[Rfam]
RNA sequence: GUUAAACGACGAGUUUCGGAUAAAGCCGAAACGUCGCUGAUUAUAGCUGUGCGCAAAGAGCGCACUAAUUCAACAGUCUCCAAAAUUGACAUUUUGUUCGACUGUUGAAUUUUAAG
Numbered sequence: 001g002u003u004a005a006a007c008g009a010c011g012a013g014u015u016u017c018g019g020a021u022a023a024a025g026c027c028g029a030a031a032c033g034u035c036g037c038u039g040a041u042u043a044u045a046g047c048u049g050u051g052c053g054c055a056a057a058g059a060g061c062g063c064a065c066u067a068a069u070u071c072a073a074c075a076g077u078c079u080c081c082a083a084a085a086u087u088g089a090c091a092u093u094u095u096g097u098u099c100g101a102c103u104g105u106u107g108a109a110u111u112u113u114a115a116g
Stems, first nucleotide, its partner, number of pairs: 011035002013032007049065006068110011081096006